[Rfam]
RNA sequence: CAGUGAUAAGGGCAAACCUGUCAAAAGACAGGGACGCAAAGCCAUAGGGUCUAAGGUGCUUAUCAGCACUAUGACAGCCUGGCUGCCGCG
Numbered sequence: 001c002a003g004u005g006a007u008a009a010g011g012g013c014a015a016a017c018c019u020g021u022c023a024a025a026a027g028a029c030a031g032g033g034a035c036g037c038a039a040a041g042c043c044a045u046a047g048g049g050u051c052u053a054a055g056g057u058g059c060u061u062a063u064c065a066g067c068a069c070u071a072u073g074a075c076a077g078c079c080u081g082g083c084u085g086c087c088g089c090g
Stems, first nucleotide, its partner, number of pairs: 012037002017032006040084004046080003049075003056069004
This 90-nucleotide RNA from Desulfosporosinus sp. I2 belongs to the Rfam family "c-di-GMP-I riboswitch aptamer". NCBI's taxonomy places the organism under Bacteria, Bacillota, Eubacteriales, Desulfitobacteriaceae, Desulfosporosinus. Pairs were carried over by alignment from the consensus structure, which is taken from published work.